[Rfam]
Rfam assigns this 189-nucleotide sequence from Gossypium hirsutum to the family "MIR828 microRNA precursor family".
The literature on the family includes a 2006 paper in Genes Dev by Rajagopalan et al., "A diverse and evolutionarily fluid set of microRNAs in Arabidopsis thaliana".

RNA sequence: GUAAUGUUUCUUGCUCAAAUGAGUAUUCCAAUCACAGUUGCAUUUGCAUAUACAUAUAUAUAUUCACACUCAUAAAACCCAAAAAAAAAAUGGGUCUGUAUUAAUGUCCCAUGUUUUACCAUAUGUAUUGGUUUUAUGAUGCAUUUGCUUCUGUUUUUCUGAGAUGCUCAUUUAAGCAAGCAAUGUUAA
Number, nucleotide and partner (000 for none) at each position: 001g000002u000003a000004a186005u185006g184007u183008u182009u000010c180011u179012u178013g177014c176015u175016c000017a173018a172019a171020u170021g169022a168023g167024u166025a165026u164027u163028c000029c161030a160031a000032u000033c000034a000035c000036a000037g000038u000039u000040g000041c000042a000043u000044u000045u000046g000047c000048a000049u000050a000051u000052a000053c000054a000055u000056a000057u000058a000059u000060a000061u000062a000063u000064u000065c000066a000067c000068a000069c000070u000071c000072a000073u000074a000075a000076a000077a000078c000079c000080c000081a000082a000083a000084a000085a000086a000087a000088a000089a000090a000091u000092g000093g000094g000095u000096c000097u000098g000099u000100a000101u000102u000103a000104a000105u000106g000107u000108c000109c000110c000111a000112u000113g000114u000115u000116u000117u000118a000119c000120c000121a000122u000123a000124u000125g000126u000127a000128u000129u000130g000131g000132u000133u000134u000135u000136a000137u000138g000139a000140u000141g000142c000143a000144u000145u000146u000147g000148c000149u000150u000151c000152u000153g000154u000155u000156u000157u000158u000159c000160u030161g029162a000163g027164a026165u025166g024167c023168u022169c021170a020171u019172u018173u017174a000175a015176g014177c013178a012179a011180g010181c000182a008183a007184u006185g005186u004187u000188a000189a000
The family's consensus secondary structure was predicted with RNAalifold.